The family of this 119-nucleotide sequence from Salinimonas iocasae is "Histidine operon leader".

RNA sequence: UCACCACCAUCAUCAUAAAGCAUAACCUUUCAGGUUCGUGCUGGAAGGUUUGUGUUUCCUUCCAGUGGCGCAGAUGAAUUGUAUAGCCCCCGGAAGGAAACUUCCGGGGGUUUUUUCAU
Numbered sequence: 001u002c003a004c005c006a007c008c009a010u011c012a013u014c015a016u017a018a019a020g021c022a023u024a025a026c027c028u029u030u031c032a033g034g035u036u037c038g039u040g041c042u043g044g045a046a047g048g049u050u051u052g053u054g055u056u057u058c059c060u061u062c063c064a065g066u067g068g069c070g071c072a073g074a075u076g077a078a079u080u081g082u083a084u085a086g087c088c089c090c091c092g093g094a095a096g097g098a099a100a101c102u103u104c105c106g107g108g109g110g111u112u113u114u115u116u117c118a119u
Stems, first nucleotide, its partner, number of pairs: 008040003012035003020031001041065008081116001083114001085112012